[Rfam]
RNA sequence: AUGCCUUAAACUGAUGAGUAAGGAAAAUAACGAUGCGGGGUGACGCCCGCGUCCUCGUGCAGUUACGAGAGCAAUUUUUGAACGGGUACAGGUCUGUCCGCGUGGGUGACUCGCCUACUUCGCGAGACGCCUCGCGGAGCUGGGAUCUGCCCC
Numbered sequence: 001a002u003g004c005c006u007u008a009a010a011c012u013g014a015u016g017a018g019u020a021a022g023g024a025a026a027a028u029a030a031c032g033a034u035g036c037g038g039g040g041u042g043a044c045g046c047c048c049g050c051g052u053c054c055u056c057g058u059g060c061a062g063u064u065a066c067g068a069g070a071g072c073a074a075u076u077u078u079u080g081a082a083c084g085g086g087u088a089c090a091g092g093u094c095u096g097u098c099c100g101c102g103u104g105g106g107u108g109a110c111u112c113g114c115c116u117a118c119u120u121c122g123c124g125a126g127a128c129g130c131c132u133c134g135c136g137g138a139g140c141u142g143g144g145a146u147c148u149g150c151c152c153c
Base pairs, nucleotide, nucleotide: 004023005022006021007020008019032053033052034051035050036049037048038047039046054069055068056067057066058065084152085151086150087149090148091147092146093145094144095143099137104132105131106130107129108128110126111125112124113123114122

The family of this 153-nucleotide sequence from Electrophorus electricus is "U12 minor spliceosomal RNA". By type it is a spliceosomal small nuclear RNA. Its Rfam clan is "U2 clan".